[Rfam]
RNA sequence: UUCAAGAGUAUAAGCGGUCAGGACAGGCAUCAGCCUCCGGGACAUUGCUCUUUGC
Numbered sequence: 001u002u003c004a005a006g007a008g009u010a011u012a013a014g015c016g017g018u019c020a021g022g023a024c025a026g027g028c029a030u031c032a033g034c035c036u037c038c039g040g041g042a043c044a045u046u047g048c049u050c051u052u053u054g055c
Stems, first nucleotide, its partner, number of pairs: 005051006015040001018042002021038002025036004

Xanthine riboswitch aptamer (NMT1 RNA): a 55-nucleotide sequence from Venatorbacter sp. C2-1. Pairs were carried over by alignment from the consensus structure, which is taken from published work. A search with the family's covariance model found it, with a score of 50 bits. The literature on the family includes a 2020 paper in RNA by Yu and Breaker, "A bacterial riboswitch class senses xanthine and uric acid to regulate genes associated with purine oxidation". Its family is annotated with purine nucleobase binding in the Gene Ontology.